[Rfam]
RNA sequence: UUAUCGGCGGUCUCGGAUUCGCUUGGUGCAGGUCGGGAACUGAUUGGCUGACACCGCCACGUGGAUUUUCACGGUUGGCUUGUGAGCAGGGAUCGGAUCCUGCCUUCCAUCAACUGAAUCGGAGCCCGAGGUGAAA
Numbered sequence: 001u002u003a004u005c006g007g008c009g010g011u012c013u014c015g016g017a018u019u020c021g022c023u024u025g026g027u028g029c030a031g032g033u034c035g036g037g038a039a040c041u042g043a044u045u046g047g048c049u050g051a052c053a054c055c056g057c058c059a060c061g062u063g064g065a066u067u068u069u070c071a072c073g074g075u076u077g078g079c080u081u082g083u084g085a086g087c088a089g090g091g092a093u094c095g096g097a098u099c100c101u102g103c104c105u106u107c108c109a110u111c112a113a114c115u116g117a118a119u120c121g122g123a124g125c126c127c128g129a130g131g132u133g134a135a136a
Stems, first nucleotide, its partner, number of pairs: 013123002017119004023113006030106003034102005040096006
Record summary
This 136-nucleotide RNA sequence from Brassica oleracea belongs to the Rfam family "MIR168 microRNA precursor family". Gene Ontology terms of the family: RISC complex and miRNA-mediated post-transcriptional gene silencing. Rfam 15.1 lists 518 matches to the family in 218 species. A reference for the family is Reinhart et al. (2002), "MicroRNAs in plants", Genes Dev.